[Rfam]
Overview
Rfam assigns this 154-nucleotide RNA sequence from Peptoclostridium acidaminophilum to the family "glmS glucosamine-6-phosphate activated ribozyme aptamer". The family's RNA type in Rfam is riboswitch. The source organism's lineage runs through Bacteria, Bacillati, Bacillota, Peptoclostridium and Peptoclostridium acidaminophilum.
RNA sequence: UUAGGCUGCAUAGCGCCUGGACUCGGCUUUGCUGAGUUGACGAGGAUCGGGAUUAUCGAAAUAUCGGCGGAUGUCCCGGCGGCUUUUCACGGCCGAAAAAGGUCUGGCAAAUCUCCUGAGUGAUCGGGAGGACAAGAAGGAUCGGGUGAAGCUG
Numbered sequence: 001u002u003a004g005g006c007u008g009c010a011u012a013g014c015g016c017c018u019g020g021a022c023u024c025g026g027c028u029u030u031g032c033u034g035a036g037u038u039g040a041c042g043a044g045g046a047u048c049g050g051g052a053u054u055a056u057c058g059a060a061a062u063a064u065c066g067g068c069g070g071a072u073g074u075c076c077c078g079g080c081g082g083c084u085u086u087u088c089a090c091g092g093c094c095g096a097a098a099a100a101g102g103u104c105u106g107g108c109a110a111a112u113c114u115c116c117u118g119a120g121u122g123a124u125c126g127g128g129a130g131g132a133c134a135a136g137a138a139g140g141a142u143c144g145g146g147u148g149a150a151g152c153u154g
Base pairs, nucleotide, nucleotide: 020038021037022036023035024034025033026032027031047079048078049077050076051075056067057066058065059064080095081094082093083092084091101143102142103141104140105139113130114129115128116127117126118125119124